[Rfam]
RNA sequence: CGUUGAAGUGAUGAUAGAUUUAUCCGGAAAAUUAAUAUGUCGAUUGUUAAAUCAGACUACAAUUAUCUGAUCAACG
Number, nucleotide and partner (000 for none) at each position: 001c076002g075003u074004u073005g072006a071007a000008g000009u000010g000011a000012u000013g000014a000015u000016a000017g000018a000019u000020u000021u000022a000023u000024c000025c000026g000027g000028a000029a000030a000031a000032u000033u000034a000035a000036u000037a000038u000039g000040u000041c000042g000043a000044u000045u000046g000047u000048u000049a000050a000051a000052u000053c000054a000055g000056a000057c000058u000059a000060c000061a000062a000063u000064u000065a000066u000067c000068u000069g000070a000071u006072c005073a004074a003075c002076g001
Overview:
Shown here is a 76-nucleotide RNA from Coptis chinensis, a member of the family "Small nucleolar RNA Z155". Lineage of the source: Eukaryota > Viridiplantae > Streptophyta > Euphyllophyta > Coptis. It is annotated as a C/D-box small nucleolar RNA.